[Rfam]
RNA sequence: GCGGUUGAUGACCGGUUCGUAAUAACGUUUCAGGACCCGGAGGGCAGUACUCCGGCGCCUCCACCACAAGCCCAUCGCGCCCCGGCACGUCGCUGCGGCAGGCGGUCUUUUGAUGGGGGCGAAAUAGGAUCGACUGGGCGGUAAAGGGAUCGCGAGUUCGCUUUCACUUCGGUGAGGGACGAUGCGGCUGUCGGUAAGGACUCGACCGGUUCGACGCAGGCAACCCCUGUUUCGAGCAUUUGGCCAAAACUCUAAAUGCCAACGAUAACGUUGUCAUGGAUGCCCGCCUCGCGGCGUAA
Numbered sequence: 001g002c003g004g005u006u007g008a009u010g011a012c013c014g015g016u017u018c019g020u021a022a023u024a025a026c027g028u029u030u031c032a033g034g035a036c037c038c039g040g041a042g043g044g045c046a047g048u049a050c051u052c053c054g055g056c057g058c059c060u061c062c063a064c065c066a067c068a069a070g071c072c073c074a075u076c077g078c079g080c081c082c083c084g085g086c087a088c089g090u091c092g093c094u095g096c097g098g099c100a101g102g103c104g105g106u107c108u109u110u111u112g113a114u115g116g117g118g119g120c121g122a123a124a125u126a127g128g129a130u131c132g133a134c135u136g137g138g139c140g141g142u143a144a145a146g147g148g149a150u151c152g153c154g155a156g157u158u159c160g161c162u163u164u165c166a167c168u169u170c171g172g173u174g175a176g177g178g179a180c181g182a183u184g185c186g187g188c189u190g191u192c193g194g195u196a197a198g199g200a201c202u203c204g205a206c207c208g209g210u211u212c213g214a215c216g217c218a219g220g221c222a223a224c225c226c227c228u229g230u231u232u233c234g235a236g237c238a239u240u241u242g243g244c245c246a247a248a249a250c251u252c253u254a255a256a257u258g259c260c261a262a263c264g265a266u267a268a269c270g271u272u273g274u275c276a277u278g279g280a281u282g283c284c285c286g287c288c289u290c291g292c293g294g295c296g297u298a299a
Base pairs, nucleotide, nucleotide: 001161002160003159004158015150016149017148018147027139028138029137031136032135033134037055038054039053040052042050056121057120058119059118060117061116062115163235
Rfam assigns this 299-nucleotide RNA from Methylobacterium sp. Leaf104 to the family "permuted transfer-messenger RNA". The source organism's lineage runs through Bacteria, Pseudomonadota, Alphaproteobacteria, Methylobacteriaceae and Methylobacterium. It is annotated as a non-coding RNA gene. Its family is annotated with RNA catabolic process in the Gene Ontology.